[Rfam]
Nucleotides: 036
Stems, first nucleotide, its partner, number of pairs: 002021004010035003
Number, partner (000 for none) and nucleotide at each position: 001000c002021g003020g004019g005018c006000g007000g008000a009000a010035u011034c012033c013000g014000a015000a016000a017000a018005g019004c020003c021002c022000u023000u024000c025000a026000a027000a028000g029000a030000g031000u032000a033012g034011g035010a036000a
The family of this 36-nucleotide RNA sequence is "DUF805b RNA". Rfam classes the family as a cis-regulatory element.